[Rfam]
RNA sequence: GCAACAUCGGACCGUCGGUCUACCGAGCAAUAUCACCCACUCUGCGGAAGAUCUUCCCUCCGUCGU
Numbered sequence: 001g002c003a004a005c006a007u008c009g010g011a012c013c014g015u016c017g018g019u020c021u022a023c024c025g026a027g028c029a030a031u032a033u034c035a036c037c038c039a040c041u042c043u044g045c046g047g048a049a050g051a052u053c054u055u056c057c058c059u060c061c062g063u064c065g066u
Stems, first nucleotide, its partner, number of pairs: 004063002009057003014052003019048003023044001025042003

mir-2774 microRNA precursor family: a 66-nucleotide RNA sequence from Bombyx mori. NCBI's taxonomy places the organism under Eukaryota, Opisthokonta, Panarthropoda, Obtectomera, Bombyx. On this family, see Liu et al., BMC Genomics 2010: "MicroRNAs of Bombyx mori identified by Solexa sequencing". It scores 67 bits against the family's covariance model.